[Rfam]
RNA sequence: UAUGGCAGGAGAGGUGCGAAACUCAGGCAGUUAUUUUAGGCUCUGGAGCCAGUGAAAAAUAAUCAGGGGAGUUUUCGCCGAGAUAGAAAUUCCGACCAGCGGAAAUUUUAUCGGCUAUUAGGGCUGAAUCCCUAAGGCUGUCAUCGUUACACGGUGGAGUGCUUCUGAUAAA
Numbered sequence: 001u002a003u004g005g006c007a008g009g010a011g012a013g014g015u016g017c018g019a020a021a022c023u024c025a026g027g028c029a030g031u032u033a034u035u036u037u038a039g040g041c042u043c044u045g046g047a048g049c050c051a052g053u054g055a056a057a058a059a060u061a062a063u064c065a066g067g068g069g070a071g072u073u074u075u076c077g078c079c080g081a082g083a084u085a086g087a088a089a090u091u092c093c094g095a096c097c098a099g100c101g102g103a104a105a106u107u108u109u110a111u112c113g114g115c116u117a118u119u120a121g122g123g124c125u126g127a128a129u130c131c132c133u134a135a136g137g138c139u140g141u142c143a144u145c146g147u148u149a150c151a152c153g154g155u156g157g158a159g160u161g162c163u164u165c166u167g168a169u170a171a172a
Stems, first nucleotide, its partner, number of pairs: 006167006016078006023071001030063008082112007090104004113139004118135006141157007
Dot-bracket structure: .....((((((....((((((.(......((((((((..................)))))))).......).))))))...(((((((.((((.......)))).)))))))((((.((((((......)))))))))).(((((((...)))))))....)))))).....
Rfam assigns this 172-nucleotide RNA sequence from Mergibacter septicus to the family "Lysine riboswitch aptamer".
The organism belongs to Mergibacter, within Bacteria.
The family's consensus secondary structure is taken from published work.
The match comes from Rfam's covariance-model search (86 bits).